mir-499 microRNA precursor family: an 81-nucleotide sequence from Denticeps clupeoides. The organism belongs to Denticeps, within Eukaryota. Its family is annotated with RISC complex and miRNA-mediated post-transcriptional gene silencing in the Gene Ontology. A search with the family's covariance model found it, with a score of 69 bits.

[Rfam]
RNA sequence: GAGAAGGAGGUAGUUAAGACUUGCAGUGAUGUUUUAGGGGAAAUGAAUUCAUGAACAUCACUUAAGUCUGUGCUAACUCUU
Numbered sequence: 001g002a003g004a005a006g007g008a009g010g011u012a013g014u015u016a017a018g019a020c021u022u023g024c025a026g027u028g029a030u031g032u033u034u035u036a037g038g039g040g041a042a043a044u045g046a047a048u049u050c051a052u053g054a055a056c057a058u059c060a061c062u063u064a065a066g067u068c069u070g071u072g073c074u075a076a077c078u079c080u081u
Stems, first nucleotide, its partner, number of pairs: 017069007026061009036052001